The family of this 127-nucleotide RNA sequence from Hibiscus trionum is "Small nucleolar RNA SNORD14". Rfam's curators write: U14 small nucleolar RNA (U14 snoRNA) is required for early cleavages of eukaryotic precursor rRNAs. The base pairs follow the family's consensus structure, which was predicted with PFOLD. Gene Ontology terms of the family: RNA processing and nucleolus. The family's RNA type in Rfam is C/D-box small nucleolar RNA. It scores 69 bits against the family's covariance model.
RNA sequence: UGUCUAUGAUGAUAAAUCCAAAAGGCUUGUUUCUCAGAAACAUUCGCAGUGGCCGUCUGAGGGCUUUCGCCUUUCGCCGGGCUUGAGAGCUUCUGCUGUUUAGCUCCUUCCUUGGAUGUCUGAGGCU
Numbered sequence: 001u002g003u004c005u006a007u008g009a010u011g012a013u014a015a016a017u018c019c020a021a022a023a024g025g026c027u028u029g030u031u032u033c034u035c036a037g038a039a040a041c042a043u044u045c046g047c048a049g050u051g052g053c054c055g056u057c058u059g060a061g062g063g064c065u066u067u068c069g070c071c072u073u074u075c076g077c078c079g080g081g082c083u084u085g086a087g088a089g090c091u092u093c094u095g096c097u098g099u100u101u102a103g104c105u106c107c108u109u110c111c112u113u114g115g116a117u118g119u120c121u122g123a124g125g126c127u
Stems, first nucleotide, its partner, number of pairs: 002126003063090006